[Rfam]
Vertebrate telomerase RNA: a 491-nucleotide sequence from Calcarius ornatus. It scores 143 bits against the family's covariance model. Gene Ontology terms of the family: telomerase activity, telomerase catalytic core complex and telomere maintenance via telomerase. Rfam 15.1 lists 523 matches to the family in 477 species.
RNA sequence: UGUGCCGGGGUGGGCAGGCCCUAGGGCCGACUAACCCUAAUGGCGGCUGCGCCCCUCACGCUCGCCCGCUGUUUUACUCGCUGACUUUCAGCGGGCAAAGGAAGCAGCCCAGGGGAAAGGGGGUGGGGGAAAAGAGUUCCGGCCUCAAAAAAAAACCAAAAGACAAACAAACAAAAAAAAAAACGACAAAAAAAGCCAGCGAGGGGGAUCCACACCCCGGCCCACCUUGGGGUCCCUGUCCCUUCUCCGAAACCGGGGAUGCUCCCGCCCUCGCCCCUCGUGGAGGCCGCGGUCGGCGGGCUCAGCGCCGCUGCCGCCGCGAAGAGUUCGGCUCUGUCAGCCUCGGCGGCGGCCGGGAGCAGAGGGCCGGCGCGCCCACCCUGGGCAGCCGGGGGACCCCAGCAGAACAAAACGGGCGCGGCGCCGCUGGGCGCUGAGCAGCCGCCGCCCCCUGAGACGUGGGGUGCGCGGCCGGCGCCGCCCCGACACCC
Dot-bracket structure: ...(((((((((.(.(..((((.......................(((((.............((((((((........[[[[.[[[[)))))))).......)))))..................................................................................]]].].]]]]...)))).).).))))))))).....(((((((...........................(((((((...(((((............(((((.((((.(((.....)))...))))))))).((((.....)))).........)))))....)))))))...................................)))))))...........((((..((((((................((((...((((........))))...))))..))))))))))........